This 145-nucleotide sequence from Kroppenstedtia eburnea belongs to the Rfam family "Ribosomal protein L10 leader".
From the family's description: This family is a putative r-protein leader autoregulatory structure found in B. subtilis and other low-GC Gram-positive bacteria. It is located in the 5' untranslated regions of mRNAs encoding ribosomal proteins L10 and L12 (rplJ-rplL). A Rho-independent transcription terminator structure that is probably involved in regulation is included at the 3' end.
It is annotated as a cis-regulatory leader.
[Rfam]
RNA sequence: CAACUGAAUCGGAUUCUGCCGUAGACAGCCGGGGCACCGGAGAUGGUGCUUAAACAUCCUGCCGAGGUAUGAACAUACAUCCGUCCUGCGGGAUGGGUUUGUUCCCGGCCUUCGUCUGUCUGCGAAGGCCUUUUCAUUUUACGGC
Numbered sequence: 001c002a003a004c005u006g007a008a009u010c011g012g013a014u015u016c017u018g019c020c021g022u023a024g025a026c027a028g029c030c031g032g033g034g035c036a037c038c039g040g041a042g043a044u045g046g047u048g049c050u051u052a053a054a055c056a057u058c059c060u061g062c063c064g065a066g067g068u069a070u071g072a073a074c075a076u077a078c079a080u081c082c083g084u085c086c087u088g089c090g091g092g093a094u095g096g097g098u099u100u101g102u103u104c105c106c107g108g109c110c111u112u113c114g115u116c117u118g119u120c121u122g123c124g125a126a127g128g129c130c131u132u133u134u135c136a137u138u139u140u141a142c143g144g145c
Stems, first nucleotide, its partner, number of pairs: 028062002031059003034049006107130009
Annotation
Rfam links the family to the GO term regulation of gene expression. A search with the family's covariance model found it, with a score of 56 bits.